[Rfam]
RNA sequence: CUUUCUGAUGAUGAUCGAACAAAUACUUUCGUUCUACCUAUUUGCUUUAUGCAAUGAGGAAAGACAUUUGGAGACCUGAACUGAGGAAAG
Dot-bracket structure: ..((((..............................................................................))))..
Numbered sequence: 001c002u003u004u005c006u007g008a009u010g011a012u013g014a015u016c017g018a019a020c021a022a023a024u025a026c027u028u029u030c031g032u033u034c035u036a037c038c039u040a041u042u043u044g045c046u047u048u049a050u051g052c053a054a055u056g057a058g059g060a061a062a063g064a065c066a067u068u069u070g071g072a073g074a075c076c077u078g079a080a081c082u083g084a085g086g087a088a089a090g
Stems, first nucleotide, its partner, number of pairs: 003088004
This 90-nucleotide RNA sequence from Ceratodon purpureus belongs to the Rfam family "Small nucleolar RNA Z159/U59". By type it is a C/D-box small nucleolar RNA. A search with the family's covariance model found it, with a score of 56 bits. Lineage of the source: Eukaryota > Embryophyta > Bryophyta > Dicranidae > Ceratodon. Gene Ontology terms of the family: RNA processing and nucleolus.